[Rfam]
RNA sequence: CCGCCCGUCGCUUGAUCCGAUUGGUUAUUUUGGCGAGUUCUUCGGACGCACUGUCCUCCAUUGCCGCGCUGCGAGGCGCUGUGAGGUGGGCUGCGGAAGUUGUGCGAGCCUAAAGAAUUAGAGGAACAAGAAGUCGUAACAAGGUAUCCGUAGGUGAACCUGCAGAAGGAUCAAGC
Numbered sequence: 001c002c003g004c005c006c007g008u009c010g011c012u013u014g015a016u017c018c019g020a021u022u023g024g025u026u027a028u029u030u031u032g033g034c035g036a037g038u039u040c041u042u043c044g045g046a047c048g049c050a051c052u053g054u055c056c057u058c059c060a061u062u063g064c065c066g067c068g069c070u071g072c073g074a075g076g077c078g079c080u081g082u083g084a085g086g087u088g089g090g091c092u093g094c095g096g097a098a099g100u101u102g103u104g105c106g107a108g109c110c111u112a113a114a115g116a117a118u119u120a121g122a123g124g125a126a127c128a129a130g131a132a133g134u135c136g137u138a139a140c141a142a143g144g145u146a147u148c149c150g151u152a153g154g155u156g157a158a159c160c161u162g163c164a165g166a167a168g169g170a171u172c173a174a175g176c
Stems, first nucleotide, its partner, number of pairs: 001143001003140001006136002009133001011130004016125003021120001023119004028114003032110003037105002040102001043099001047095004053091004058086002062083003145168001147166002150163005
The record is a 176-nucleotide part of an RNA from Retortamonas sp. ATCC 50375, which matches "Eukaryotic small subunit ribosomal RNA" in Rfam. Lineage of the source: Eukaryota > Metamonada > Fornicata > Retortamonadidae > Retortamonas. The sequence is in the family's curated seed alignment. Gene Ontology terms of the family: structural constituent of ribosome and ribosome. Clan: SSU clan. Pairs were carried over by alignment from the consensus structure, which is taken from published work. Rfam 15.1 lists 75,755 matches to the family in 2,556 species.